[Rfam]
RNA sequence: UGGCGCCCAAUGGUGUGGCUUUGGAUACAGGGGAAUUCGCGAGGGAAGAGGUGUCUAAGUGUUCAGUGGAAGAAGAAGAAAAAAGUGAAAGUCAGUUCGACAAAGAUCGCAGCGGGAGUCUGCCGCAUUUAAAGGUACAGUAGCGCCUAACUAUGGGACAAGAAUUAAGUAAGCAUAAAGUUUUUGUUAAGCAAUUAAAAGAAGCUUUAAAGACAUGGGGAGUAAAGGUUAAGAGUAAUGAUCUUUUUAAGUUUUUUGACCUUAUUAAGGACACCUGUCCGU
Numbered sequence: 001u002g003g004c005g006c007c008c009a010a011u012g013g014u015g016u017g018g019c020u021u022u023g024g025a026u027a028c029a030g031g032g033g034a035a036u037u038c039g040c041g042a043g044g045g046a047a048g049a050g051g052u053g054u055c056u057a058a059g060u061g062u063u064c065a066g067u068g069g070a071a072g073a074a075g076a077a078g079a080a081a082a083a084a085g086u087g088a089a090a091g092u093c094a095g096u097u098c099g100a101c102a103a104a105g106a107u108c109g110c111a112g113c114g115g116g117a118g119u120c121u122g123c124c125g126c127a128u129u130u131a132a133a134g135g136u137a138c139a140g141u142a143g144c145g146c147c148u149a150a151c152u153a154u155g156g157g158a159c160a161a162g163a164a165u166u167a168a169g170u171a172a173g174c175a176u177a178a179a180g181u182u183u184u185u186g187u188u189a190a191g192c193a194a195u196u197a198a199a200a201g202a203a204g205c206u207u208u209a210a211a212g213a214c215a216u217g218g219g220g221a222g223u224a225a226a227g228g229u230u231a232a233g234a235g236u237a238a239u240g241a242u243c244u245u246u247u248u249a250a251g252u253u254u255u256u257u258g259a260c261c262u263u264a265u266u267a268a269g270g271a272c273a274c275c276u277g278u279c280c281g282u
Stems, first nucleotide, its partner, number of pairs: 006033003013028003038050001040048001092135002096132002106130001112126004141161001143159001146157004166209003169205002216258008226244006267282001269280004
A member of the RNA family "Mason-Pfizer monkey virus packaging signal" from Sciurus vulgaris, 282 nucleotides long. It is annotated as a cis-regulatory element. For this family Rfam cites "Mutational analysis of the predicted secondary RNA structure of the Mason-Pfizer monkey virus packaging signal" (Mustafa et al., Virus Res, 2004). About the family: This family represents a group of sequences that are related to the Mason-Pfizer monkey virus (MPMV) packaging signal. The packaging signal is located in the 5' UTR and is required for specific RNA encapsidation. Taxonomically the source falls in Sciurus (Eukaryota, Euarchontoglires, Sciuromorpha, Sciuridae). The base pairs follow the family's consensus structure, which was predicted with PFOLD.